[Rfam]
RNA sequence: UUUCGGGAGGGGUAGACGUUAAAGAAUACCAACAAAAACUACUUACGAGAGGCAACCUCGUAUAAAAGCGUA
Numbered sequence: 001u002u003u004c005g006g007g008a009g010g011g012g013u014a015g016a017c018g019u020u021a022a023a024g025a026a027u028a029c030c031a032a033c034a035a036a037a038a039c040u041a042c043u044u045a046c047g048a049g050a051g052g053c054a055a056c057c058u059c060g061u062a063u064a065a066a067a068g069c070g071u072a
Base pairs, nucleotide, nucleotide: 001018003016004015009030010029012027013026046060047059048058049057